[Rfam]
RNA sequence: CUGCAGCUAAUUAAAUCAGUUGGGGUUCUUUCCUUAUUGGGCUCAAUAUGCAAUGGCUGUAAACAAAAGCCCCCUAGGUAAUGUAGGCAGCCUGUUACUUACAUGUGCAUAAACAUCAUUGGACACAACC
Numbered sequence: 001c002u003g004c005a006g007c008u009a010a011u012u013a014a015a016u017c018a019g020u021u022g023g024g025g026u027u028c029u030u031u032c033c034u035u036a037u038u039g040g041g042c043u044c045a046a047u048a049u050g051c052a053a054u055g056g057c058u059g060u061a062a063a064c065a066a067a068a069g070c071c072c073c074c075u076a077g078g079u080a081a082u083g084u085a086g087g088c089a090g091c092c093u094g095u096u097a098c099u100u101a102c103a104u105g106u107g108c109a110u111a112a113a114c115a116u117c118a119u120u121g122g123a124c125a126c127a128a129c130c
Base pairs, nucleotide, nucleotide: 002052003051004050005049019047020046021045022044025042026041027040028039078117088107093105
This 130-nucleotide RNA sequence from Oryctolagus cuniculus belongs to the Rfam family "Small nucleolar RNA SNORA70".
snoRNA U70 seems to be exclusive to mammals and is a member of the H/ACA class of snoRNA which contain H (ANANNA) and ACA box motifs.
The base pairs follow the family's consensus structure, which was predicted with PFOLD.
Its family is annotated with RNA processing and nucleolus in the Gene Ontology.
The source organism's lineage runs through Eukaryota, Teleostomi, Dipnotetrapodomorpha, Theria and Oryctolagus.
The literature on the family includes a 2000 paper in IUBMB Life by Charette and Gray, "Pseudouridine in RNA: what, where, how, and why".